[Rfam]
RNA sequence: GCGAACUCUGGAAAGCCGGGGCCUGCUGUCGGCAGGUGACCCGCACCCACGGUGCAAACCGCCACACCCGGGCGGUGAAGCUCUCAGGUACCGAUGACAGAGCGGGGAGG
Number, nucleotide and partner (000 for none) at each position: 001g000002c000003g000004a000005a000006c102007u101008c100009u099010g098011g000012a000013a000014a000015g000016c000017c043018g042019g041020g040021g000022c000023c000024u000025g000026c000027u000028g000029u000030c000031g000032g000033c000034a000035g000036g000037u000038g000039a000040c020041c019042c018043g017044c000045a089046c088047c087048c000049a084050c000051g000052g083053u000054g081055c000056a000057a000058a076059c075060c074061g073062c072063c071064a000065c000066a000067c000068c000069c000070g000071g063072g062073c061074g060075g059076u058077g000078a000079a000080g000081c054082u000083c052084u049085c000086a000087g047088g046089u045090a000091c000092c000093g000094a000095u000096g000097a000098c010099a009100g008101a007102g006103c000104g000105g000106g000107g000108a000109g000110g000
RNA: Glycine riboswitch aptamer